This 74-nucleotide sequence from Scyliorhinus torazame belongs to the Rfam family "mir-205 microRNA precursor family".
The source organism's lineage runs through Eukaryota, Bilateria, Elasmobranchii, Carcharhiniformes and Scyliorhinus.

RNA sequence: UUCUGCUGUCCUUCAUUCCACCGGAGUCUGUAACAUAACCAAUCAGAUUUCAGUGGUGUGAAGUGCAGGAGACA
Numbered sequence: 001u002u003c004u005g006c007u008g009u010c011c012u013u014c015a016u017u018c019c020a021c022c023g024g025a026g027u028c029u030g031u032a033a034c035a036u037a038a039c040c041a042a043u044c045a046g047a048u049u050u051c052a053g054u055g056g057u058g059u060g061a062a063g064u065g066c067a068g069g070a071g072a073c074a
Base pairs, nucleotide, nucleotide: 011063012062013061014060015059016058019055020054021053023051024050025049026048028046029045030044
Dot-bracket structure: ..........((((((..(((.((((.(((.............))).)))).)))..))))))...........